[Rfam]
A member of the RNA family "c-di-AMP riboswitch aptamer (ydaO/yuaA leader)" from Paenibacillus oceani, 149 nucleotides long. NCBI's taxonomy places the organism under Bacteria, Bacillati, Bacillota, Paenibacillaceae, Paenibacillus. Gene Ontology terms of the family: cyclic-di-AMP binding and regulation of gene expression.

RNA sequence: UAAUUGUAGUCGCCGAGUUUUCUUCUAAGAAGAAAAACGGGGGAACCAAUGUACAUGGGGUGAAUCGGCCGUACCGUUACGCGCCGAAGGGCGAUUUCUCACCGCCCGAAUCCGUCAGCUAACCUCGUAGGCGAAUGUGGGGAGGAUAG
Dot-bracket structure: ..........((((...((((((((...))))))))((((((....((.......))(((.....((((.............))))..((((...........))))...))).........)))))).))))................
Numbered sequence: 001u002a003a004u005u006g007u008a009g010u011c012g013c014c015g016a017g018u019u020u021u022c023u024u025c026u027a028a029g030a031a032g033a034a035a036a037a038c039g040g041g042g043g044a045a046c047c048a049a050u051g052u053a054c055a056u057g058g059g060g061u062g063a064a065u066c067g068g069c070c071g072u073a074c075c076g077u078u079a080c081g082c083g084c085c086g087a088a089g090g091g092c093g094a095u096u097u098c099u100c101a102c103c104g105c106c107c108g109a110a111u112c113c114g115u116c117a118g119c120u121a122a123c124c125u126c127g128u129a130g131g132c133g134a135a136u137g138u139g140g141g142g143a144g145g146a147u148a149g
Stems, first nucleotide, its partner, number of pairs: 011133004018036008037128006047057002058113003066086004089107004